[Rfam]
RNA sequence: ACCUGACACCUUUCACAACGGAUCGUCCGGCACGUACCUGCCGGUGAAGGGAUGUACAU
Dot-bracket structure: ........(((((((...........((((((......)))))))))))))........
Description: This 59-nucleotide RNA from Georgenia subflava belongs to the Rfam family "msiK RNA". It scores 68 bits against the family's covariance model.